[Rfam]
RNA sequence: AUCAGAAACCGGGUCUCCUCCUCCUCCCAAUGACCCGGUUCUCUCGACUACGGACCUCCUCCUCCUCCCAGUCCGUGGUCACAAUCGGGAAGCCCGGCACUCCUCCUCCCAGCCGGGCUUCCUCU
Numbered sequence: 001a002u003c004a005g006a007a008a009c010c011g012g013g014u015c016u017c018c019u020c021c022u023c024c025u026c027c028c029a030a031u032g033a034c035c036c037g038g039u040u041c042u043c044u045c046g047a048c049u050a051c052g053g054a055c056c057u058c059c060u061c062c063u064c065c066u067c068c069c070a071g072u073c074c075g076u077g078g079u080c081a082c083a084a085u086c087g088g089g090a091a092g093c094c095c096g097g098c099a100c101u102c103c104u105c106c107u108c109c110c111a112g113c114c115g116g117g118c119u120u121c122c123u124c125u
Stems, first nucleotide, its partner, number of pairs: 007040002010037006046080010090120009
This 125-nucleotide RNA sequence from Rhizobium sp. RU20A belongs to the Rfam family "Alphaproteobacterial ar14".
It is annotated as a small RNA.
Its family is annotated with biological process involved in symbiotic interaction in the Gene Ontology.
The organism belongs to Rhizobium, within Bacteria.
From the family's description: Smr14C2 was renamed NfeR1 (Nodule Formation Efficiency RNA) highly expressed in salt stress and during the symbiotic interaction on legume roots.
The base pairs follow the family's consensus structure.